Rfam assigns this 140-nucleotide RNA sequence from Actinoplanes sp. N902-109 to the family "c-di-AMP riboswitch aptamer (ydaO/yuaA leader)".
Its family is annotated with regulation of gene expression and cyclic-di-AMP binding in the Gene Ontology.
It scores 83 bits against the family's covariance model.
The base pairs follow the family's consensus structure.
Taxonomically the source falls in Actinoplanes (Bacteria, Bacillati, Actinomycetota, Micromonosporaceae).
[Rfam]
RNA sequence: GGCGGACCACCGCUCAAUCGCCGCACGGCGAGCCGGGGAACCACUAUGUAAUGGGGUGAGUCCGCUGAGUAAUCGGCGGUAGGGAUCGCUUCCGUCCCGAACCCGUCAGCUAACCCGGUCGGCGGCCACACGGAAGGAAA
Numbered sequence: 001g002g003c004g005g006a007c008c009a010c011c012g013c014u015c016a017a018u019c020g021c022c023g024c025a026c027g028g029c030g031a032g033c034c035g036g037g038g039a040a041c042c043a044c045u046a047u048g049u050a051a052u053g054g055g056g057u058g059a060g061u062c063c064g065c066u067g068a069g070u071a072a073u074c075g076g077c078g079g080u081a082g083g084g085a086u087c088g089c090u091u092c093c094g095u096c097c098c099g100a101a102c103c104c105g106u107c108a109g110c111u112a113a114c115c116c117g118g119u120c121g122g123c124g125g126c127c128a129c130a131c132g133g134a135a136g137g138a139a140a
Stems, first nucleotide, its partner, number of pairs: 011124004018031003032119006042053002054104003062079004082098004